Record summary: This 83-nucleotide RNA sequence from Aedes aegypti belongs to the Rfam family "mir-2765 microRNA precursor family".
RNA sequence: ACGUUUCCGGAGCCUGGUAACUCCACCACCGUUGGCGAUAUUUGACAGCCAAUGGGAGCUGGAGUUCCCGCGUGCCGAACGUU
Numbered sequence: 001a002c003g004u005u006u007c008c009g010g011a012g013c014c015u016g017g018u019a020a021c022u023c024c025a026c027c028a029c030c031g032u033u034g035g036c037g038a039u040a041u042u043u044g045a046c047a048g049c050c051a052a053u054g055g056g057a058g059c060u061g062g063a064g065u066u067c068c069c070g071c072g073u074g075c076c077g078a079a080c081g082u083u
Base pairs, nucleotide, nucleotide: 005079008077009076010075012073016069017068019066020065021064022063023061026058029055030054031053032052033051034050035049036048

It is one of the family's seed sequences. Lineage of the source: Eukaryota > Endopterygota > Diptera > Culicidae > Stegomyia.